The record is a 146-nucleotide RNA from Bacillus smithii, which matches "FMN riboswitch aptamer (RFN element)" in Rfam. Rfam links the family to the GO term FMN binding. Rfam's curators write: The RFN element is a highly conserved domain that is found frequently in the 5'-untranslated regions of prokaryotic mRNAs that encode for flavin mononucleotide (FMN) biosynthesis and transport proteins. The base pairs follow the family's consensus structure, which is taken from published work. The organism belongs to Bacillus smithii, within Bacteria. The match comes from Rfam's covariance-model search (116 bits).

RNA sequence: AUGUUCCUUCGGGGCAGGGUGAAAUUCCCGACCGGCGGUGAUGAACAUGAUGUUCAAAGCCCGUGACCCGUGCGCCUUUUCGGUGUACGGUGGAUUUGGUGAAAUUCCAAAGCCGACAGUGAAAGUCUGGAUGGGAGAAGGAGGAA
Numbered sequence: 001a002u003g004u005u006c007c008u009u010c011g012g013g014g015c016a017g018g019g020u021g022a023a024a025u026u027c028c029c030g031a032c033c034g035g036c037g038g039u040g041a042u043g044a045a046c047a048u049g050a051u052g053u054u055c056a057a058a059g060c061c062c063g064u065g066a067c068c069c070g071u072g073c074g075c076c077u078u079u080u081c082g083g084u085g086u087a088c089g090g091u092g093g094a095u096u097u098g099g100u101g102a103a104a105u106u107c108c109a110a111a112g113c114c115g116a117c118a119g120u121g122a123a124a125g126u127c128u129g130g131a132u133g134g135g136a137g138a139a140g141g142a143g144g145a146a
Base pairs, nucleotide, nucleotide: 004143005142006141007140008139009138010137017029018028019027031126032125033115034114035064036063037062038061059113060112068090069089095111096110097109098108099107117129118128119127